[Rfam]
RNA: Small nucleolar RNA SNORA25
Organism: Cnephaeus nilssonii
RNA sequence: AGGUCAUUUCAAAGAGAGCUUAUGGAACCCAAACCAGGAGAUCUUAAUGCAAUGCCCUAAGAUUGAAGUUCUCCAUGGGAUGUAAUAGGCACUCAUCGUGCUGUGCCUUCCUGAGGAGAUACAAGC
Numbered sequence: 001a002g003g004u005c006a007u008u009u010c011a012a013a014g015a016g017a018g019c020u021u022a023u024g025g026a027a028c029c030c031a032a033a034c035c036a037g038g039a040g041a042u043c044u045u046a047a048u049g050c051a052a053u054g055c056c057c058u059a060a061g062a063u064u065g066a067a068g069u070u071c072u073c074c075a076u077g078g079g080a081u082g083u084a085a086u087a088g089g090c091a092c093u094c095a096u097c098g099u100g101c102u103g104u105g106c107c108u109u110c111c112u113g114a115g116g117a118g119a120u121a122c123a124a125g126c
Stems, first nucleotide, its partner, number of pairs: 002057002005054003014045004019040003023037001024035002070119005077112004085104004090100003